[Rfam]
RNA sequence: UGGCUUCAGUGAACAUUCAACGCUGUCGGUGAGUUUUGACUUUUCAAAUUAAACCAUCGACCGUUGGUUGUACCUUGAGGUCCA
Numbered sequence: 001u002g003g004c005u006u007c008a009g010u011g012a013a014c015a016u017u018c019a020a021c022g023c024u025g026u027c028g029g030u031g032a033g034u035u036u037u038g039a040c041u042u043u044u045c046a047a048a049u050u051a052a053a054c055c056a057u058c059g060a061c062c063g064u065u066g067g068u069u070g071u072a073c074c075u076u077g078a079g080g081u082c083c084a
Stems, first nucleotide, its partner, number of pairs: 001084003004080005014070002017067006025061007033054004
A member of the RNA family "mir-181 microRNA precursor family" from Chiloscyllium punctatum, 84 nucleotides long. Gene Ontology terms of the family: RISC complex and miRNA-mediated post-transcriptional gene silencing. The base pairs follow the family's consensus structure, which was predicted with PFOLD.